[Rfam]
RNA sequence: AAAGCAGACUGGGUAGUCGCGGGGACAUAUUGUCCUCGAGGAAAGUCCGAGCUCCAUAGGGCAGGAUGCUGGGUAACUCCCAGUGAGGGUGACCUCAAGGAAAGUGCCACAGAAAUUAAACCGCCAAGCAGAGCGGGAUAUCCCGCUCUGCUUGGUAAGGAUGAAACGGUGCGGUAAGAGCGCACCAGCGGUCAGGCGACUGGCCGGCUAGGCAAACCCCAUCCGGAGCAAGACCAAAUAGAGGAGAGUUGACGUUGCUCGCCGAUCUCCCGGGUUAGGUCGCUAGAGGUGUCAGGUAACUGCCAUCCCAGAGAGAUGAUUAUCGCCCCGCAAGGGGAACAGAACUCGGCUUACAGGUCUGCUUUGUAU
Numbered sequence: 001a002a003a004g005c006a007g008a009c010u011g012g013g014u015a016g017u018c019g020c021g022g023g024g025a026c027a028u029a030u031u032g033u034c035c036u037c038g039a040g041g042a043a044a045g046u047c048c049g050a051g052c053u054c055c056a057u058a059g060g061g062c063a064g065g066a067u068g069c070u071g072g073g074u075a076a077c078u079c080c081c082a083g084u085g086a087g088g089g090u091g092a093c094c095u096c097a098a099g100g101a102a103a104g105u106g107c108c109a110c111a112g113a114a115a116u117u118a119a120a121c122c123g124c125c126a127a128g129c130a131g132a133g134c135g136g137g138a139u140a141u142c143c144c145g146c147u148c149u150g151c152u153u154g155g156u157a158a159g160g161a162u163g164a165a166a167c168g169g170u171g172c173g174g175u176a177a178g179a180g181c182g183c184a185c186c187a188g189c190g191g192u193c194a195g196g197c198g199a200c201u202g203g204c205c206g207g208c209u210a211g212g213c214a215a216a217c218c219c220c221a222u223c224c225g226g227a228g229c230a231a232g233a234c235c236a237a238a239u240a241g242a243g244g245a246g247a248g249u250u251g252a253c254g255u256u257g258c259u260c261g262c263c264g265a266u267c268u269c270c271c272g273g274g275u276u277a278g279g280u281c282g283c284u285a286g287a288g289g290u291g292u293c294a295g296g297u298a299a300c301u302g303c304c305a306u307c308c309c310a311g312a313g314a315g316a317u318g319a320u321u322a323u324c325g326c327c328c329c330g331c332a333a334g335g336g337g338a339a340c341a342g343a344a345c346u347c348g349g350c351u352u353a354c355a356g357g358u359c360u361g362c363u364u365u366g367u368a369u
Stems, first nucleotide, its partner, number of pairs: 001365010011354001012324007020038008043352003047349005052228004059260004064224005069083005084098001085096004099219002104217002106213003121160002123156015168186006188208001189206007232281004243270005253264002288307004293302003
The record is a 369-nucleotide RNA sequence from Dethiobacter sp., which matches "Bacterial RNase P class A" in Rfam. The family's RNA type in Rfam is ribozyme. Gene Ontology terms of the family: ribonuclease P activity, dimeric ribonuclease P complex and tRNA processing. The match comes from Rfam's covariance-model search (318 bits). The organism belongs to Dethiobacter, within Bacteria.